[Rfam]
RNA sequence: CGCGAAAAUGGCAAACCUGUCGAAAGGCAGGGACGCAAAGCUAUAGGGCCUUCCCUCUCAGAGGAUGGUUGCCAGUUGCCGAAG
Dot-bracket structure: (.((......((...((((((....))))))..[))..((((...(((((................))).]))))))..))..)

This 84-nucleotide RNA from Cohnella terricola belongs to the Rfam family "c-di-GMP-I-GGC riboswitch aptamer". Lineage of the source: Bacteria > Bacillati > Bacillota > Paenibacillaceae > Cohnella. A reference for the family is Weinberg et al. (2017), "Bioinformatic analysis of riboswitch structures uncovers variant classes with altered ligand specificity", Proc Natl Acad Sci U S A. The base pairs follow the family's consensus structure, which is taken from published work.